Shown here is a 267-nucleotide RNA sequence from endosymbiont 'TC1' of Trimyema compressum, a member of the family "Bacterial large signal recognition particle RNA".
On this family, see Rosenblad et al., Nucleic Acids Res 2003: "SRPDB: Signal Recognition Particle Database".
Rfam classes the family as a non-coding RNA gene.
It scores 169 bits against the family's covariance model.
Rfam describes the family as follows. The signal recognition particle (SRP) is a universally conserved ribonucleoprotein involved in the co-translational targeting of proteins to membranes.
Clan: SRP clan.
RNA sequence: UUGUACUAGAUGGGGAGCUAGCGGUUCCUUGUAACCCUCAAUCCGCUAUAGAGGGAUUGAAUACCUGUCUGAGGGAUUAAGGUUUAAUAUUAAUUGGUAAAUAUGUGGUGUUGAUAAUUGAGCCCUUUGCGACGAGAGCCCAUGAACCCUGUCAGAUCCGGAAGGAAGCAGCAGUAUGUGGAUACUUUUGGGUGCUGAAGGUAAAACUUGAUUGGAGCUAACGUUUAUUUGAUUAUAUUAAUAUCUUGUUUCGACGACAGGGUACAA
Numbered sequence: 001u002u003g004u005a006c007u008a009g010a011u012g013g014g015g016a017g018c019u020a021g022c023g024g025u026u027c028c029u030u031g032u033a034a035c036c037c038u039c040a041a042u043c044c045g046c047u048a049u050a051g052a053g054g055g056a057u058u059g060a061a062u063a064c065c066u067g068u069c070u071g072a073g074g075g076a077u078u079a080a081g082g083u084u085u086a087a088u089a090u091u092a093a094u095u096g097g098u099a100a101a102u103a104u105g106u107g108g109u110g111u112u113g114a115u116a117a118u119u120g121a122g123c124c125c126u127u128u129g130c131g132a133c134g135a136g137a138g139c140c141c142a143u144g145a146a147c148c149c150u151g152u153c154a155g156a157u158c159c160g161g162a163a164g165g166a167a168g169c170a171g172c173a174g175u176a177u178g179u180g181g182a183u184a185c186u187u188u189u190g191g192g193u194g195c196u197g198a199a200g201g202u203a204a205a206a207c208u209u210g211a212u213u214g215g216a217g218c219u220a221a222c223g224u225u226u227a228u229u230u231g232a233u234u235a236u237a238u239u240a241a242u243a244u245c246u247u248g249u250u251u252c253g254a255c256g257a258c259a260g261g262g263u264a265c266a267a
Stems, first nucleotide, its partner, number of pairs: 001267006009058003012030008035055005064261006073252005079247005084241005093230001097228006105222002107219003115214008124201006130192001133190005138183001140181005149174004157166003